Overview: The family of this 96-nucleotide sequence from Nicotiana tabacum is "MIR6152 microRNA precursor family". It scores 98 bits against the family's covariance model. The family's consensus secondary structure was predicted with RNAalifold. Its family is annotated with RISC complex and miRNA-mediated post-transcriptional gene silencing in the Gene Ontology. The organism belongs to Nicotiana, within Eukaryota.
[Rfam]
RNA sequence: UAGAUAGAUUAUUGUAUUCGACUGUAUUCAUAACGUAAAACAGGGGAUUACACUGUUUUUAAAUGAAAAGUGAAUCAAUUAACAUAAUAGACUCUU
Numbered sequence: 001u002a003g004a005u006a007g008a009u010u011a012u013u014g015u016a017u018u019c020g021a022c023u024g025u026a027u028u029c030a031u032a033a034c035g036u037a038a039a040a041c042a043g044g045g046g047a048u049u050a051c052a053c054u055g056u057u058u059u060u061a062a063a064u065g066a067a068a069a070g071u072g073a074a075u076c077a078a079u080u081a082a083c084a085u086a087a088u089a090g091a092c093u094c095u096u
Base pairs, nucleotide, nucleotide: 002095003094004093009090010089011088012087013086014085015084017082018081020080021079023077024076026075027074028073029072030071031070034065035064036063037059038058039057040056041055042054043053
Dot-bracket structure: .(((....(((((((.((.((.((.((((((..((((((((((.........)))))))...)))....)))))))).)))).)))))))..))).